Rfam assigns this 106-nucleotide RNA from Gossypium harknessii to the family "Plant small nucleolar RNA R71". By type it is a C/D-box small nucleolar RNA. A reference for the family is Brown et al. (2003), "Plant snoRNAs: functional evolution and new modes of gene expression", Trends Plant Sci.
RNA sequence: AGUUCAUGGUAUGGUCACUUCCUUAGAAUUGUCUUGAAACACUCUCACGCCUCAUAUAAAGACUCACCUUCAUAUUGUUUAAAAUUUGUGAUAUCCCACCGAAACU
Numbered sequence: 001a002g003u004u005c006a007u008g009g010u011a012u013g014g015u016c017a018c019u020u021c022c023u024u025a026g027a028a029u030u031g032u033c034u035u036g037a038a039a040c041a042c043u044c045u046c047a048c049g050c051c052u053c054a055u056a057u058a059a060a061g062a063c064u065c066a067c068c069u070u071c072a073u074a075u076u077g078u079u080u081a082a083a084a085u086u087u088g089u090g091a092u093a094u095c096c097c098a099c100c101g102a103a104a105c106u
Base pairs, nucleotide, nucleotide: 001106003104004103005101057074058073